The family of this 64-nucleotide RNA sequence is "L2-Alphaproteobacteria ribosomal protein leader". It is annotated as a cis-regulatory leader. The literature on the family includes a 2020 paper in BMC Microbiol by Eckert and Weinberg, "Discovery of 20 novel ribosomal leader candidates in bacteria and archaea".
[Rfam]
RNA sequence: GGCCACCCUCGGGGGGCUACAACACAGGCAGGUUAUCCUGCCGUAAGCAAACGGAAGACAGAAA
Dot-bracket structure: ((((.(((...)))))))........((((((....))))))......................